Source information: Shown here is a 78-nucleotide RNA from Betacoronavirus hipposideri, a member of the family "Coronavirus frameshifting stimulation element". Lineage of the source: Viruses > Orthornavirae > Orthocoronavirinae > Hibecovirus > Bat Hp-betacoronavirus Zhejiang2013. For this family Rfam cites "Programmed ribosomal frameshifting in decoding the SARS-CoV genome" (Baranov et al., Virology, 2005). It is one of the family's seed sequences. About the family: This family represents a conserved stem-loop found in Coronaviruses which can promote ribosomal frameshifting. This family interacts with a downstream region to form a pseudoknot structure, the region varies according to the virus but pseudoknot formation is known to stimulate frameshifting.
RNA sequence: GGGUGCGCGGUGUAAGUGCAGCCCGUCUUACACCGUGUGGCAGUGGUCUUUCCACUGACGUCGUCGUAAGGGCUUUCG
Numbered sequence: 001g002g003g004u005g006c007g008c009g010g011u012g013u014a015a016g017u018g019c020a021g022c023c024c025g026u027c028u029u030a031c032a033c034c035g036u037g038u039g040g041c042a043g044u045g046g047u048c049u050u051u052c053c054a055c056u057g058a059c060g061u062c063g064u065c066g067u068a069a070g071g072g073c074u075u076u077c078g
Base pairs, nucleotide, nucleotide: 008035009034010033011032012031013030014029015028016027020074021073022072023071024070037064038063039062040061041060046055047054